[Rfam]
RNA sequence: UGAAUUUCCGCCAAACAAAGUUGAUUUAAGACUGUGUUUGGUGGUGAAUUUUUUAGGGAAAUCAGACAGCGGCCAGACAACCGUAGAGAUGGAUUCCACAGAUGACUGAAUUUUCAAUUUUGGUUGUCUACUGAUUCCAUUCUCACAUUU
Numbered sequence: 001u002g003a004a005u006u007u008c009c010g011c012c013a014a015a016c017a018a019a020g021u022u023g024a025u026u027u028a029a030g031a032c033u034g035u036g037u038u039u040g041g042u043g044g045u046g047a048a049u050u051u052u053u054u055a056g057g058g059a060a061a062u063c064a065g066a067c068a069g070c071g072g073c074c075a076g077a078c079a080a081c082c083g084u085a086g087a088g089a090u091g092g093a094u095u096c097c098a099c100a101g102a103u104g105a106c107u108g109a110a111u112u113u114u115c116a117a118u119u120u121u122g123g124u125u126g127u128c129u130a131c132u133g134a135u136u137c138c139a140u141u142c143u144c145a146c147a148u149u150u
Stems, first nucleotide, its partner, number of pairs: 005048003009043009019033004086144003089140005104125006